The family of this 84-nucleotide RNA sequence from Ameiurus melas is "mir-221 microRNA precursor family". Its family is annotated with RISC complex and miRNA-mediated post-transcriptional gene silencing in the Gene Ontology. The source organism's lineage runs through Eukaryota, Teleostomi, Actinopteri, Neopterygii and Ameiurus. On this family, see Yao et al., J Virol 2008: "MicroRNA profile of Marek's disease virus-transformed T-cell line MSB-1: predominance of virus-encoded microRNAs". The base pairs follow the family's consensus structure, which was predicted with RNAalifold.

[Rfam]
RNA sequence: GUUGUCCCGAACCUGGCAUACAAUGUAGAAUUCUGUGUGGUACAAUCUACAGCUACAUUGUCUGCUGGGUUUCAGGCUAGCCAA
Numbered sequence: 001g002u003u004g005u006c007c008c009g010a011a012c013c014u015g016g017c018a019u020a021c022a023a024u025g026u027a028g029a030a031u032u033c034u035g036u037g038u039g040g041u042a043c044a045a046u047c048u049a050c051a052g053c054u055a056c057a058u059u060g061u062c063u064g065c066u067g068g069g070u071u072u073c074a075g076g077c078u079a080g081c082c083a084a
Base pairs, nucleotide, nucleotide: 013068014067015066016065017064018063020061021060022059023058024057025056026055027054028053033052034051035050036049